[Rfam]
RNA sequence: AUGCGAUGAGUCGAUAAGUGGCAUUGCCACUUUCGUUUAGGGAGGUCAUUAACGCAGGAGCGGACUUUGGUUAGUUGUGUGAACCUGCUAACCACACUUGAAAAAGUGCCCUUGUGCCGAGAAGUUUUCUCGGCUUUUU
Number, nucleotide and partner (000 for none) at each position: 001a000002u000003g000004c000005g000006a000007u000008g000009a000010g000011u000012c035013g034014a033015u000016a031017a000018g030019u029020g028021g027022c026023a000024u000025u000026g022027c021028c020029a019030c018031u016032u000033u014034c013035g012036u000037u000038u000039a112040g111041g110042g109043a067044g066045g065046u064047c000048a000049u000050u000051a000052a000053c062054g061055c060056a000057g000058g000059a000060g055061c054062g053063g000064a046065c045066u044067u043068u094069g093070g092071u091072u090073a089074g088075u087076u000077g000078u000079g000080u000081g000082a000083a000084c000085c000086u000087g075088c074089u073090a072091a071092c070093c069094a068095c108096a107097c106098u105099u000100g000101a000102a000103a000104a000105a098106g097107u096108g095109c042110c041111c040112u039113u000114g000115u000116g134117c133118c132119g131120a130121g129122a128123a127124g000125u000126u000127u123128u122129c121130u120131c119132g118133g117134c116135u000136u000137u000138u000139u000
RNA: MarS sRNA
Organism: Streptococcus hyointestinalis